A member of the RNA family "Small nucleolar RNA SNORD10" from Lynx canadensis, 148 nucleotides long. Rfam classes the family as a C/D-box small nucleolar RNA. A search with the family's covariance model found it, with a score of 97 bits.
RNA sequence: GCUCUGUGAUGAACCCAUGCGUGUCAGUCGGAGCCUGGCUUGGCUCCCCUGUCUUCUCAGCCCGGGGAGUGUUCUACUUCCCAGGCCUGGUCGCCUGGCCUGGCACGGGGGUCCUCAGGCAAAGGAUCAGCCUCUGUAUUCUGAGAGC
Numbered sequence: 001g002c003u004c005u006g007u008g009a010u011g012a013a014c015c016c017a018u019g020c021g022u023g024u025c026a027g028u029c030g031g032a033g034c035c036u037g038g039c040u041u042g043g044c045u046c047c048c049c050u051g052u053c054u055u056c057u058c059a060g061c062c063c064g065g066g067g068a069g070u071g072u073u074c075u076a077c078u079u080c081c082c083a084g085g086c087c088u089g090g091u092c093g094c095c096u097g098g099c100c101u102g103g104c105a106c107g108g109g110g111g112u113c114c115u116c117a118g119g120c121a122a123a124g125g126a127u128c129a130g131c132c133u134c135u136g137u138a139u140u141c142u143g144a145g146a147g148c
Stems, first nucleotide, its partner, number of pairs: 001148004045111005050105004